Shown here is an 87-nucleotide RNA sequence from Teredinibacter turnerae, a member of the family "c-di-GMP-I riboswitch aptamer". Gene Ontology term of the family: cyclic-di-GMP binding. NCBI's taxonomy places the organism under Bacteria, Pseudomonadota, Cellvibrionales, Cellvibrionaceae, Teredinibacter turnerae.
[Rfam]
RNA sequence: CUGAUAAAAAGGCACGCUGACGCGAAAGCCCAGCACGCAAAAUUACCGGUCUAAGGACUCAAGGUCUACGACAGCGGGAUCGCCAGA
Numbered sequence: 001c002u003g004a005u006a007a008a009a010a011g012g013c014a015c016g017c018u019g020a021c022g023c024g025a026a027a028g029c030c031c032a033g034c035a036c037g038c039a040a041a042a043u044u045a046c047c048g049g050u051c052u053a054a055g056g057a058c059u060c061a062a063g064g065u066c067u068a069c070g071a072c073a074g075c076g077g078g079a080u081c082g083c084c085a086g087a
Base pairs, nucleotide, nucleotide: 012038013037017033018032019031022029023028042080043079044078046077047076048075049072050071051070056066057065058064059063